[Rfam]
RNA sequence: AUACUCUGGUUUCUCUUCAGAUCGUAUAAAUCUUUCGCCUUUUACUAAAGAUUUCCGUGGAGAGGAACAAUUGUGAGUUUUCACUCAAUUUUUCGAGGCCUCGUUCUUACGAGGCU
Dot-bracket structure: ..((((..(((((((((((........((((((((...........))))))))...)))))))))))......)))).................(.((((((......)))))))
This 116-nucleotide RNA sequence from Myotis lucifugus belongs to the Rfam family "U5 spliceosomal RNA". From the family's description: U5 RNA is a component of both types of known spliceosome. Rfam's curators put it in the seed alignment. It is annotated as a spliceosomal small nuclear RNA. Gene Ontology terms of the family: U5 snRNP and spliceosomal tri-snRNP complex assembly.